About this RNA
A member of the RNA family "Y RNA" from Prolemur simus, 101 nucleotides long. On this family, see Teunissen et al., Nucleic Acids Res 2000: "Conserved features of Y RNAs: a comparison of experimentally derived secondary structures". Taxonomically the source falls in Prolemur (Eukaryota, Craniata, Vertebrata, Lemuridae). Pairs were carried over by alignment from the consensus structure, which is taken from published work. It is annotated as a non-coding RNA gene.

[Rfam]
RNA sequence: GGCUGGUCCAAAUGCAGUGAUGUUUACAACUAAUUGAUCAAACAAGUUACAGAUUCCUUUGUUCCUUCUCCAUUCCCACUGCUUCACUUGACCAGCCUAAA
Numbered sequence: 001g002g003c004u005g006g007u008c009c010a011a012a013u014g015c016a017g018u019g020a021u022g023u024u025u026a027c028a029a030c031u032a033a034u035u036g037a038u039c040a041a042a043c044a045a046g047u048u049a050c051a052g053a054u055u056c057c058u059u060u061g062u063u064c065c066u067u068c069u070c071c072a073u074u075c076c077c078a079c080u081g082c083u084u085c086a087c088u089u090g091a092c093c094a095g096c097c098u099a100a101a
Base pairs, nucleotide, nucleotide: 001097002096003095004094005093006092007091008090010089011088014085016080017079018078019077022075028063029062030061032059033058